A member of the RNA family "pan motif" from Ammoniphilus sp. CFH 90114, 126 nucleotides long. Taxonomically the source falls in Ammoniphilus (Bacteria, Bacillati, Bacilli, Caryophanales). The family's RNA type in Rfam is cis-regulatory element.
RNA sequence: UUGGCUGUAUCCUUUUAUGGGAAGGAAUAGCACAAUCACAGUUCUCAUGCAAAUAAUAUCUUUUAUAUCUAAGCAUGCUAAUUUACAAGUCUGCUCUGAGCCUGUUAAAUGGACCGAGACAGAAGA
Numbered sequence: 001u002u003g004g005c006u007g008u009a010u011c012c013u014u015u016u017a018u019g020g021g022a023a024g025g026a027a028u029a030g031c032a033c034a035a036u037c038a039c040a041g042u043u044c045u046c047a048u049g050c051a052a053a054u055a056a057u058a059u060c061u062u063u064u065a066u067a068u069c070u071a072a073g074c075a076u077g078c079u080a081a082u083u084u085a086c087a088a089g090u091c092u093g094c095u096c097u098g099a100g101c102c103u104g105u106u107a108a109a110u111g112g113a114c115c116g117a118g119a120c121a122g123a124a125g126a
Stems, first nucleotide, its partner, number of pairs: 001035003004031005010026007091122003094118003098114001101112002